[Rfam]
This 233-nucleotide sequence from Planococcus massiliensis belongs to the Rfam family "T-box leader".
The family has 48 seed sequences and 19,395 matches in Rfam 15.1.
A search with the family's covariance model found it, with a score of 102 bits.

RNA sequence: UUCAAAUCGAGGAUUGAGACGAGUAGGCAAGCACAUCUAUGUAGAGAGUCAGCGGCUGGUGGAAGCUGAUUGGGUGACUUGCGCGAAUGGACUUAGGAGAGCUGGCCUGAAAGCGGAAGCGAGUAAGGGAGACGUAGGCCCUGCGUUAAAGGGAAAGGCGUAAGAGCCUGUUUUAAGUGAGUGCAGAAUUGCAUUAAUGCGUGGUGGUACCGCGGUUAACCCCCGUCCCCGCA
Number, nucleotide and partner (000 for none) at each position: 001u000002u000003c000004a000005a000006a000007u100008c099009g000010a000011g000012g000013a000014u000015u095016g094017a093018g092019a000020c000021g000022a000023g000024u000025a000026g084027g082028c081029a080030a079031g078032c000033a000034c000035a000036u000037c073038u072039a071040u000041g000042u000043a000044g000045a000046g000047a000048g070049u069050c068051a067052g066053c065054g000055g000056c000057u000058g000059g000060u000061g000062g000063a000064a000065g053066c052067u051068g050069a049070u048071u039072g038073g037074g000075u000076g000077a000078c031079u030080u029081g028082c027083g000084c026085g000086a000087a000088u000089g000090g000091a000092c018093u017094u016095a015096g000097g000098a000099g008100a007101g000102c131103u130104g000105g000106c128107c127108u126109g000110a000111a000112a000113g000114c000115g000116g000117a000118a000119g000120c000121g000122a000123g000124u000125a000126a108127g107128g106129g000130a103131g102132a000133c145134g144135u143136a000137g000138g000139c000140c000141c000142u000143g135144c134145g133146u000147u000148a000149a000150a000151g000152g000153g000154a000155a000156a000157g000158g000159c000160g000161u000162a000163a000164g000165a000166g000167c000168c000169u000170g000171u000172u000173u000174u000175a000176a000177g000178u000179g000180a195181g194182u193183g192184c191185a190186g000187a000188a000189u000190u185191g184192c183193a182194u181195u180196a000197a000198u000199g000200c000201g230202u000203g228204g227205u000206g000207g000208u000209a000210c000211c000212g226213c225214g224215g223216u000217u000218a000219a000220c000221c000222c000223c215224c214225g213226u212227c204228c203229c000230c201231g000232c000233a000
Rfam classes the family as a cis-regulatory leader. Pairs were carried over by alignment from the consensus structure, which is taken from published work.